Background
Shown here is a 140-nucleotide RNA sequence from Lupinus albus, a member of the family "small nucleolar RNA snoR134". The source organism's lineage runs through Eukaryota, Embryophyta, Euphyllophyta, Fabales and Lupinus. Pairs were carried over by alignment from the consensus structure, which was predicted with RNAalifold. Its family is annotated with RNA processing and nucleolus in the Gene Ontology. The family's RNA type in Rfam is H/ACA-box small nucleolar RNA.

[Rfam]
RNA sequence: CUGCACGACGCAACCCCGGGCUUCUCUGAAAUCGCUAUGACGAGAAAAGCCCCAAUGCACGUGCUAAAUCAUCGCCGUUCGUGUUGCAGAAUGGCCCUAAUUUCAAUGGCUAUAUCUGUGUCAAAGCAACGGCGAAAUCC
Numbered sequence: 001c002u003g004c005a006c007g008a009c010g011c012a013a014c015c016c017c018g019g020g021c022u023u024c025u026c027u028g029a030a031a032u033c034g035c036u037a038u039g040a041c042g043a044g045a046a047a048a049g050c051c052c053c054a055a056u057g058c059a060c061g062u063g064c065u066a067a068a069u070c071a072u073c074g075c076c077g078u079u080c081g082u083g084u085u086g087c088a089g090a091a092u093g094g095c096c097c098u099a100a101u102u103u104c105a106a107u108g109g110c111u112a113u114a115u116c117u118g119u120g121u122c123a124a125a126g127c128a129a130c131g132g133c134g135a136a137a138u139c140c
Stems, first nucleotide, its partner, number of pairs: 003064005010058002018052005023046001025043002074133006082123002085120006094110003